[Rfam]
RNA sequence: UCGCCACUGGUCCUCGACGUAUCCUGGGAAACAGGCAGCAGUAUUGCGUAAGCUCGGGUGUCUAGUCAACACCGCCGUAUAGCUUGGAUUUGGCC
Numbered sequence: 001u002c003g004c005c006a007c008u009g010g011u012c013c014u015c016g017a018c019g020u021a022u023c024c025u026g027g028g029a030a031a032c033a034g035g036c037a038g039c040a041g042u043a044u045u046g047c048g049u050a051a052g053c054u055c056g057g058g059u060g061u062c063u064a065g066u067c068a069a070c071a072c073c074g075c076c077g078u079a080u081a082g083c084u085u086g087g088a089u090u091u092g093g094c095c
Stems, first nucleotide, its partner, number of pairs: 004093003009090005016084001018082001023035004038047003052078002057073005